[Rfam]
RNA sequence: GAAAGAUAGGUGAGAAUCCUAUCCAUCGAAAGCCUAAGGUUUCCAGGGGAAGGCUCGUCCGCCCUGGGUAAGUCGGGACCUAAGGUGAGGCCGAAAGGCGUAGCCGAUGGACAACAGGUUGAUAUUCCUGUACCACUUAUUAAACUGAUGGAGUGACGGAGAAGGCUAAGUUGAGCGUGUGAUUGGAUUCACGUGUAAGCAGUGAGGUGGUCAUGUAGGCAAAUCCGCAUGGCAUAACAUUGAGCUGUGAUGCCGAAGCCGAAUGGCGAAGUCAACUGACGUCACGCUUCCAAGAAAAGCUUCUAGGGUUAAUUUAAUAAGUGCCCGUACCGAUAACCGACACAGGUAGGCGAGGAGAGAAUCCUAAGAUGAG
Numbered sequence: 001g002a003a004a005g006a007u008a009g010g011u012g013a014g015a016a017u018c019c020u021a022u023c024c025a026u027c028g029a030a031a032g033c034c035u036a037a038g039g040u041u042u043c044c045a046g047g048g049g050a051a052g053g054c055u056c057g058u059c060c061g062c063c064c065u066g067g068g069u070a071a072g073u074c075g076g077g078a079c080c081u082a083a084g085g086u087g088a089g090g091c092c093g094a095a096a097g098g099c100g101u102a103g104c105c106g107a108u109g110g111a112c113a114a115c116a117g118g119u120u121g122a123u124a125u126u127c128c129u130g131u132a133c134c135a136c137u138u139a140u141u142a143a144a145c146u147g148a149u150g151g152a153g154u155g156a157c158g159g160a161g162a163a164g165g166c167u168a169a170g171u172u173g174a175g176c177g178u179g180u181g182a183u184u185g186g187a188u189u190c191a192c193g194u195g196u197a198a199g200c201a202g203u204g205a206g207g208u209g210g211u212c213a214u215g216u217a218g219g220c221a222a223a224u225c226c227g228c229a230u231g232g233c234a235u236a237a238c239a240u241u242g243a244g245c246u247g248u249g250a251u252g253c254c255g256a257a258g259c260c261g262a263a264u265g266g267c268g269a270a271g272u273c274a275a276c277u278g279a280c281g282u283c284a285c286g287c288u289u290c291c292a293a294g295a296a297a298a299g300c301u302u303c304u305a306g307g308g309u310u311a312a313u314u315u316a317a318u319a320a321g322u323g324c325c326c327g328u329a330c331c332g333a334u335a336a337c338c339g340a341c342a343c344a345g346g347u348a349g350g351c352g353a354g355g356a357g358a359g360a361a362u363c364c365u366a367a368g369a370u371g372a373g
Stems, first nucleotide, its partner, number of pairs: 005023006024371004032351004038331002043067006052060002074327004079110002084105003088101001090099003114131005134323011145308002150303005158290004164283003169277005175194005195253002199248004206241003210233007218226002258267003337346002353365004
RNA: Bacterial large subunit ribosomal RNA, nucleotides 1298 to 1670
Organism: Turicibacter sp. H121